[Rfam]
RNA sequence: CCGUCCGCCUCGUGAUCGUCUUCUCAACCUUCGCCGGCGGGCGUGUACAGCGCGAGACCCCCGUGAGGACCUGACUCACGGGGGUCUCGU
Numbered sequence: 001c002c003g004u005c006c007g008c009c010u011c012g013u014g015a016u017c018g019u020c021u022u023c024u025c026a027a028c029c030u031u032c033g034c035c036g037g038c039g040g041g042c043g044u045g046u047a048c049a050g051c052g053c054g055a056g057a058c059c060c061c062c063g064u065g066a067g068g069a070c071c072u073g074a075c076u077c078a079c080g081g082g083g084g085u086c087u088c089g090u
Stems, first nucleotide, its partner, number of pairs: 002043008012034004018028002052090016